[Rfam]
Nucleotides: 137
Base pairs, nucleotide, nucleotide: 004058005057006056007055013041014040015039016038070131071130072129073128074127075126076125077124078123079122080121084118085117086116087115
Number, partner (000 for none) and nucleotide at each position: 001000g002000g003000a004058g005057c006056a007055g008000g009000a010000a011000u012000a013041g014040u015039a016038u017000c018000g019000a020000c021000g022000u023000u024000g025000u026000g027000c028000a029000a030000a031000u032000u033000u034000u035000c036000c037000a038016g039015u040014g041013c042000a043000c044000g045000c046000u047000g048000u049000u050000c051000g052000a053000a054000a055007c056006u057005g058004c059000a060000a061000a062000a063000c064000u065000g066000a067000u068000u069000u070131g071130g072129g073128g074127a075126a076125g077124a078123u079122g080121g081000g082000c083000a084118g085117u086116u087115g088000u089000g090000c091000u092000u093000c094000a095000u096000a097000u098000c099000u100000a101000u102000c103000u104000u105000c106000g107000a108000u109000u110000c111000u112000u113000u114000u115087c116086g117085a118084c119000g120000a121080u122079c123078a124077u125076c126075u127074u128073c129072c130071c131070c132000a133000u134000a135000u136000c137000c

This 137-nucleotide sequence from Hibiscus syriacus belongs to the Rfam family "small nucleolar RNA snoR135". Gene Ontology terms of the family: RNA processing and nucleolus. It scores 74 bits against the family's covariance model. By type it is an H/ACA-box small nucleolar RNA. The base pairs follow the family's consensus structure, which was predicted with RNAalifold.